[Rfam]
The record is a 61-nucleotide sequence from Nostoc sp. PCC 7524, which matches "Nitrogen stress-induced RNA 1" in Rfam.
RNA sequence: UGGUAGAUGCACCCUGAUAACUAACUCCCCUGGCUGGCUGCCACCACCGGGGGUUUUUUAU
Number, nucleotide and partner (000 for none) at each position: 001u000002g013003g012004u011005a000006g000007a000008u000009g000010c000011a004012c003013c002014c000015u000016g000017a000018u000019a000020a000021c000022u000023a000024a000025c000026u000027c053028c052029c051030c050031u049032g048033g047034c000035u046036g045037g044038c000039u000040g000041c000042c000043a000044c037045c036046a035047c033048c032049g031050g030051g029052g028053g027054u000055u000056u000057u000058u000059u000060a000061u000
On this family, see Ionescu et al., J Mol Biol 2010: "Heterocyst-specific transcription of NsiR1, a non-coding RNA encoded in a tandem array of direct repeats in cyanobacteria". Rfam classes the family as a small RNA.